Source information: The record is a 75-nucleotide RNA sequence from Xiashengella succiniciproducens, which matches "tRNA" in Rfam. The organism belongs to Xiashengella, within Bacteria. A search with the family's covariance model found it, with a score of 66 bits. By type it is a transfer RNA.

Nucleotides: 075
Base pairs, nucleotide, nucleotide: 001074002073003072004071005070006069007068010027011026012025013024029045030044031043032042033041051067052066053065054064055063
Number, partner (000 for none) and nucleotide at each position: 001074g002073g003072g004071u005070u006069g007068u008000u009000a010027g011026c012025u013024c014000a015000g016000u017000u018000g019000g020000u021000u022000u023000a024013g025012a026011g027010c028000a029045u030044u031043a032042c033041c034000u035000u036000g037000a038000c039000a040000g041033g042032g043031u044030a045029g046000g047000g048000g049000u050000c051067a052066c053065u054064g055063g056000u057000u058000c059000g060000a061000a062000u063055c064054c065053a066052g067051u068007a069006c070005a071004a072003c073002c074001c075000a